[Rfam]
RNA sequence: UGGUAGAUGCACCCUGGUUUGAACCCUAGAGAUUAAUCUCUGGGGUUUUUUAUU
Number, nucleotide and partner (000 for none) at each position: 001u000002g013003g012004u011005a000006g000007a000008u000009g000010c000011a004012c003013c002014c000015u000016g000017g000018u000019u000020u000021g000022a000023a046024c045025c044026c043027u042028a041029g040030a039031g038032a037033u000034u000035a000036a000037u032038c031039u030040c029041u028042g027043g026044g025045g024046u023047u000048u000049u000050u000051u000052a000053u000054u000

Rfam assigns this 54-nucleotide sequence from Tychonema bourrellyi to the family "Nitrogen stress-induced RNA 1". On this family, see Ionescu et al., J Mol Biol 2010: "Heterocyst-specific transcription of NsiR1, a non-coding RNA encoded in a tandem array of direct repeats in cyanobacteria". It is annotated as a small RNA. A search with the family's covariance model found it, with a score of 56 bits. NCBI's taxonomy places the organism under Bacteria, Oscillatoriophycideae, Oscillatoriales, Tychonema, Tychonema bourrellyi.